[Rfam]
RNA sequence: ACGGCCUGCUCGUGAUCGUCUUCUCACCCUUCACGCGGCAGGCACAGGGAAGGCCCCCGCACGGUCGCAUCGCGCGGGGGCCUUCC
Numbered sequence: 001a002c003g004g005c006c007u008g009c010u011c012g013u014g015a016u017c018g019u020c021u022u023c024u025c026a027c028c029c030u031u032c033a034c035g036c037g038g039c040a041g042g043c044a045c046a047g048g049g050a051a052g053g054c055c056c057c058c059g060c061a062c063g064g065u066c067g068c069a070u071c072g073c074g075c076g077g078g079g080g081c082c083u084u085c086c
Base pairs, nucleotide, nucleotide: 003043005042006041007040008039009038010037012034013033014032015031018028048086049085050084051083052082053081054080055079056078057077058076059075060074062072063071
This 86-nucleotide sequence from Streptomyces netropsis belongs to the Rfam family "sodF sRNA". The literature on the family includes a 2014 paper in Nucleic Acids Res by Kim et al., "Inverse regulation of Fe- and Ni-containing SOD genes by a Fur family regulator Nur through small RNA processed from 3'UTR of the sodF mRNA". The organism belongs to Streptomyces, within Bacteria. The base pairs follow the family's consensus structure.